The record is a 69-nucleotide sequence from Rosa chinensis, which matches "Plastid-clpP 5UTR RNA" in Rfam. It is annotated as a cis-regulatory element. Plastid clpP is a non-coding RNA (ncRNA) recognised in plastids. It was found in the prime untranslated region (5UTR) of a protease complex subunit (clpP) in plastids, suggesting a posible cis-regulatory function.

[Rfam]
RNA sequence: UAUUUUGUUCAUAGGAACAAGAAGAAGCAAACCUAUUCUACACCCGAUAAGUAACAAUAUGCAAUGGUA
Numbered sequence: 001u002a003u004u005u006u007g008u009u010c011a012u013a014g015g016a017a018c019a020a021g022a023a024g025a026a027g028c029a030a031a032c033c034u035a036u037u038c039u040a041c042a043c044c045c046g047a048u049a050a051g052u053a054a055c056a057a058u059a060u061g062c063a064a065u066g067g068u069a
Stems, first nucleotide, its partner, number of pairs: 003022002006019005044067002051060003